This 102-nucleotide RNA from Senegalia massiliensis belongs to the Rfam family "Purine riboswitch aptamer".
Rfam links the family to the GO term purine nucleobase biosynthetic process.
NCBI's taxonomy places the organism under Bacteria, Clostridia, Eubacteriales, Clostridiaceae, Senegalia.
It scores 77 bits against the family's covariance model.
RNA sequence: UAUUAAGUUAAUAGAAAUGCUCAUAUAAGUCUCAUAAUAUGGUUGGGACGUUUCUACUAAAUGACCGAUAAUCAUUUGUCUAUGAGUGAGAGUGUGUCUAGG
Number, nucleotide and partner (000 for none) at each position: 001u000002a000003u000004u000005a000006a000007g000008u000009u000010a000011a000012u000013a000014g000015a000016a000017a000018u088019g087020c086021u085022c084023a083024u082025a081026u000027a000028a000029g049030u048031c047032u046033c045034a044035u000036a000037a000038u000039a000040u000041g000042g000043u000044u034045g033046g032047g031048a030049c029050g000051u000052u000053u000054c000055u000056a000057c000058u078059a077060a076061a075062u074063g073064a072065c000066c000067g000068a000069u000070a000071a000072u064073c063074a062075u061076u060077u059078g058079u000080c000081u025082a024083u023084g022085a021086g020087u019088g018089a000090g000091a000092g000093u000094g000095u000096g000097u000098c000099u000100a000101g000102g000